[Rfam]
RNA: Bacterial RNase P class A
RNA sequence: CGAGCCGGGCGGACGGCCGCGUGGUCCCUCUUGGGGGCCCCGAGGAACGUCCGGGCUCCACAGGGCAGGGUGAUGGCUAACGGCCACCCGGGGUGACCCGCGGGACAGUGCCACAGAAAACAGACCGCCCGGUGCUUCGGCGCCGGGUAAGGGUGAAACGGUGGUGUAAGAGACCACCAGUGCCCAGGGUGACCUGGGCAGCUAGGUAAACCCCACCCGGAGCAAGGUCAAAAGGAGCGCCGUGAAACGCGCUCUGCGCGGACGUUCGAGGGCUGCCCGCCCGAGUCCGCGGGUAGACCGCACGAGGCCGACGGCAACGUCGGCCCUAGAUGGAUGGCCGUCGCCCCGGGGCCCGCGAGGACCCCGAGGAAACAGAACCCGGCGUACGGCCCGGCUCGUCUG
Numbered sequence: 001c002g003a004g005c006c007g008g009g010c011g012g013a014c015g016g017c018c019g020c021g022u023g024g025u026c027c028c029u030c031u032u033g034g035g036g037g038c039c040c041c042g043a044g045g046a047a048c049g050u051c052c053g054g055g056c057u058c059c060a061c062a063g064g065g066c067a068g069g070g071u072g073a074u075g076g077c078u079a080a081c082g083g084c085c086a087c088c089c090g091g092g093g094u095g096a097c098c099c100g101c102g103g104g105a106c107a108g109u110g111c112c113a114c115a116g117a118a119a120a121c122a123g124a125c126c127g128c129c130c131g132g133u134g135c136u137u138c139g140g141c142g143c144c145g146g147g148u149a150a151g152g153g154u155g156a157a158a159c160g161g162u163g164g165u166g167u168a169a170g171a172g173a174c175c176a177c178c179a180g181u182g183c184c185c186a187g188g189g190u191g192a193c194c195u196g197g198g199c200a201g202c203u204a205g206g207u208a209a210a211c212c213c214c215a216c217c218c219g220g221a222g223c224a225a226g227g228u229c230a231a232a233a234g235g236a237g238c239g240c241c242g243u244g245a246a247a248c249g250c251g252c253u254c255u256g257c258g259c260g261g262a263c264g265u266u267c268g269a270g271g272g273c274u275g276c277c278c279g280c281c282c283g284a285g286u287c288c289g290c291g292g293g294u295a296g297a298c299c300g301c302a303c304g305a306g307g308c309c310g311a312c313g314g315c316a317a318c319g320u321c322g323g324c325c326c327u328a329g330a331u332g333g334a335u336g337g338c339c340g341u342c343g344c345c346c347c348g349g350g351g352c353c354c355g356c357g358a359g360g361a362c363c364c365c366g367a368g369g370a371a372a373c374a375g376a377a378c379c380c381g382g383c384g385u386a387c388g389g390c391c392c393g394g395c396u397c398g399u400c401u402g
Stems, first nucleotide, its partner, number of pairs: 001398010011387001012342007020042002023039006047385003051382005056222004063278004068218005074086004088102001089100004103213002108211002110207003125152002127148009160178006180202001181200008226299004258290006270282004306325008